Shown here is a 248-nucleotide RNA sequence from Oceanobacillus profundus, a member of the family "BsrG". The family's RNA type in Rfam is small RNA. A reference for the family is Irnov et al. (2010), "Identification of regulatory RNAs in Bacillus subtilis", Nucleic Acids Res. Gene Ontology terms of the family: toxin activity and autolysis. Rfam 15.1 lists 614 matches to the family in 343 species.
[Rfam]
RNA sequence: UACAAGAAGGUUUUCAUGGGUGGUGGCUCACCCCUUUUAAUCGAAAGGGGGUGAUGGAUGAUGACGGUAUAUGAGGCGUUGGUUCUAAUGAUUUCAUUUGGAGCUUUAAUUGUGGCUGUGCUGUCAAACCAAAAAAAAUAGCCACCCCAUAAGCCUGACGAGCAAUUAGGGUGGUUAUUGGUAUAGCUCUAAUGUGAGUCGCCCCCUUGAAGGGCUAUUGUAUGGUCGUUAGUGUAGCAGCACUAGCG
Numbered sequence: 001u002a003c004a005a006g007a008a009g010g011u012u013u014u015c016a017u018g019g020g021u022g023g024u025g026g027c028u029c030a031c032c033c034c035u036u037u038u039a040a041u042c043g044a045a046a047g048g049g050g051g052u053g054a055u056g057g058a059u060g061a062u063g064a065c066g067g068u069a070u071a072u073g074a075g076g077c078g079u080u081g082g083u084u085c086u087a088a089u090g091a092u093u094u095c096a097u098u099u100g101g102a103g104c105u106u107u108a109a110u111u112g113u114g115g116c117u118g119u120g121c122u123g124u125c126a127a128a129c130c131a132a133a134a135a136a137a138a139u140a141g142c143c144a145c146c147c148c149a150u151a152a153g154c155c156u157g158a159c160g161a162g163c164a165a166u167u168a169g170g171g172u173g174g175u176u177a178u179u180g181g182u183a184u185a186g187c188u189c190u191a192a193u194g195u196g197a198g199u200c201g202c203c204c205c206c207u208u209g210a211a212g213g214g215c216u217a218u219u220g221u222a223u224g225g226u227c228g229u230u231a232g233u234g235u236a237g238c239a240g241c242a243c244u245a246g247c248g
Stems, first nucleotide, its partner, number of pairs: 001222005007216001009200005015153001016150005022143002024140001028054003032050005063125007077090002100117002163186001165184001201215004227248009